[Rfam]
RNA: Small nucleolar RNA SNORA48
RNA sequence: UGUCCCUGACCUAGCUAGAGUUGUCCUGGUUUGGUGGUGCUUGUCUCAUAUCAGCCAGGGACAAAGUGACUCCUUGUUUAUCCCAGCUUGUUCUGUGCCCAUGUCUGGUUCAUGUCCUGAGCACAUGG
Numbered sequence: 001u002g003u004c005c006c007u008g009a010c011c012u013a014g015c016u017a018g019a020g021u022u023g024u025c026c027u028g029g030u031u032u033g034g035u036g037g038u039g040c041u042u043g044u045c046u047c048a049u050a051u052c053a054g055c056c057a058g059g060g061a062c063a064a065a066g067u068g069a070c071u072c073c074u075u076g077u078u079u080a081u082c083c084c085a086g087c088u089u090g091u092u093c094u095g096u097g098c099c100c101a102u103g104u105c106u107g108g109u110u111c112a113u114g115u116c117c118u119g120a121g122c123a124c125a126u127g128g
Stems, first nucleotide, its partner, number of pairs: 001063008011054002014051001018047003023040002026037002075123006090116001093108003097104002